The record is a 217-nucleotide RNA sequence from Sutterella sp. AM11-39, which matches "HNH endonuclease-associated RNA and ORF (HEARO) RNA" in Rfam. The literature on the family includes a 2009 paper in Nature by Weinberg et al., "Exceptional structured noncoding RNAs revealed by bacterial metagenome analysis". The match comes from Rfam's covariance-model search (136 bits). The organism belongs to Sutterella, within Bacteria.

RNA sequence: GUCAACUACCCCGCUCUAAAGAGCGAGGCUUGAUAAAAGCCUUGGUUGACUAGCCUCAGGCCGCCCCAAAGGCGGGCUACGUUGAAUGGGAAUGCAUAGGCACCGCGGGAUGUCAAUCCUAGUCCCGCGCUCUGCGGUUCGCGGUUAAAAGCUCUGAGAGGUAGGAGCGGUGCCGUGAACAGGUAAACCCCUUCCAACAUUGGCGAAGGAUUUCAAC
Numbered sequence: 001g002u003c004a005a006c007u008a009c010c011c012c013g014c015u016c017u018a019a020a021g022a023g024c025g026a027g028g029c030u031u032g033a034u035a036a037a038a039g040c041c042u043u044g045g046u047u048g049a050c051u052a053g054c055c056u057c058a059g060g061c062c063g064c065c066c067c068a069a070a071g072g073c074g075g076g077c078u079a080c081g082u083u084g085a086a087u088g089g090g091a092a093u094g095c096a097u098a099g100g101c102a103c104c105g106c107g108g109g110a111u112g113u114c115a116a117u118c119c120u121a122g123u124c125c126c127g128c129g130c131u132c133u134g135c136g137g138u139u140c141g142c143g144g145u146u147a148a149a150a151g152c153u154c155u156g157a158g159a160g161g162u163a164g165g166a167g168c169g170g171u172g173c174c175g176u177g178a179a180c181a182g183g184u185a186a187a188c189c190c191c192u193u194c195c196a197a198c199a200u201u202g203g204c205g206a207a208g209g210a211u212u213u214c215a216a217c
Stems, first nucleotide, its partner, number of pairs: 001050008010028002012025002015022002029039003053204003058078002061075005081198004086193001088191003100135002104129008115212006137180009149171001151168005157162001